[Rfam]
RNA sequence: AGCAAAAUGAGAUCAUUUGAUCUGAAGUAUCUAGUGUUGAUACAUCCACUCGUGGUCUUCAAAGUUUGAUUGCU
Numbered sequence: 001a002g003c004a005a006a007a008u009g010a011g012a013u014c015a016u017u018u019g020a021u022c023u024g025a026a027g028u029a030u031c032u033a034g035u036g037u038u039g040a041u042a043c044a045u046c047c048a049c050u051c052g053u054g055g056u057c058u059u060c061a062a063a064g065u066u067u068g069a070u071u072g073c074u
Stems, first nucleotide, its partner, number of pairs: 001074005

This 74-nucleotide RNA from Oryza meyeriana belongs to the Rfam family "Small nucleolar RNA R160". Rfam's curators write: snoR160 is a C/D box small nucleolar RNA, which acts as a methylation guide for 25S ribosomal RNA in plants. snoR160 has been alternatively named snoZ270 in rice. The base pairs follow the family's consensus structure. The match comes from Rfam's covariance-model search (68 bits). The organism belongs to Oryza meyeriana, within Eukaryota. A reference for the family is Chen et al. (2003), "The high diversity of snoRNAs in plants: identification and comparative study of 120 snoRNA genes from Oryza sativa", Nucleic Acids Res.